[Rfam]
RNA sequence: GCGUGGGUCGGCCCGCCUGGCAGUGGACCAGGGGGCUGGGGGACACCGCCGCCCCAUUCCCCGCGGGCGGCGGACGGCUCCGGGAGGCGAUGAGCGCCUCCCGGACAGCC
Numbered sequence: 001g002c003g004u005g006g007g008u009c010g011g012c013c014c015g016c017c018u019g020g021c022a023g024u025g026g027a028c029c030a031g032g033g034g035g036c037u038g039g040g041g042g043a044c045a046c047c048g049c050c051g052c053c054c055c056a057u058u059c060c061c062c063g064c065g066g067g068c069g070g071c072g073g074a075c076g077g078c079u080c081c082g083g084g085a086g087g088c089g090a091u092g093a094g095c096g097c098c099u100c101c102c103g104g105a106c107a108g109c110c
Stems, first nucleotide, its partner, number of pairs: 001109002007075002009038006016032004039044001046073009079105011